[Rfam]
RNA sequence: GUCAGGGACCUCAUGCCUAAAGGGCAGAGGCUUGUGAAAGCAAGCCUGAACCUGACCAGUCCCAGCUAGCGAGCUAGCUACGUUAGGAACGAAUGCAUAGGUACGUUGAGGUGCUUGCCAGCCCCAACCACUACGGCAGAUGGUUAAACAUCUCUACGAGGUAAGAGAAGUACUGUCUGCAAGAAACCGUUCCAUAACAUCGACGAGGCACACAUGAC
Numbered sequence: 001g002u003c004a005g006g007g008a009c010c011u012c013a014u015g016c017c018u019a020a021a022g023g024g025c026a027g028a029g030g031c032u033u034g035u036g037a038a039a040g041c042a043a044g045c046c047u048g049a050a051c052c053u054g055a056c057c058a059g060u061c062c063c064a065g066c067u068a069g070c071g072a073g074c075u076a077g078c079u080a081c082g083u084u085a086g087g088a089a090c091g092a093a094u095g096c097a098u099a100g101g102u103a104c105g106u107u108g109a110g111g112u113g114c115u116u117g118c119c120a121g122c123c124c125c126a127a128c129c130a131c132u133a134c135g136g137c138a139g140a141u142g143g144u145u146a147a148a149c150a151u152c153u154c155u156a157c158g159a160g161g162u163a164a165g166a167g168a169a170g171u172a173c174u175g176u177c178u179g180c181a182a183g184a185a186a187c188c189g190u191u192c193c194a195u196a197a198c199a200u201c202g203a204c205g206a207g208g209c210a211c212a213c214a215u216g217a218c
Base pairs, nucleotide, nucleotide: 001056002055003054004053005052006051010030011029012027016023017022031044032043033042034041059204060203061202064079065078066077067076068075082198083197084196085195087193091192092191093190094189095188101134102133105128106127107126108125110123111122112121115212117209118208119207136180137179138178139177140176141175142174143173144172148171149170151168152167153166154165155164
HNH endonuclease-associated RNA and ORF (HEARO) RNA: a 218-nucleotide RNA from Ktedonospora formicarum. Rfam 15.1 lists 952 matches to the family in 249 species. On this family, see Weinberg et al., Nature 2009: "Exceptional structured noncoding RNAs revealed by bacterial metagenome analysis". The family's RNA type in Rfam is non-coding RNA gene. The organism belongs to Ktedonospora, within Bacteria.